[Rfam]
RNA sequence: UUCAUCUAGGGAUCUUGUUAAAAUGCAGAUUCCAAUUCAGAAAGUCUGGAGUAGGGCCCAAGAUUCUGCAUUUCUAACAAGCUCCCAAAUGACAACCA
Numbered sequence: 001u002u003c004a005u006c007u008a009g010g011g012a013u014c015u016u017g018u019u020a021a022a023a024u025g026c027a028g029a030u031u032c033c034a035a036u037u038c039a040g041a042a043a044g045u046c047u048g049g050a051g052u053a054g055g056g057c058c059c060a061a062g063a064u065u066c067u068g069c070a071u072u073u074c075u076a077a078c079a080a081g082c083u084c085c086c087a088a089a090u091g092a093c094a095a096c097c098a
Stems, first nucleotide, its partner, number of pairs: 003091003009085003014081007021073003025069005031063002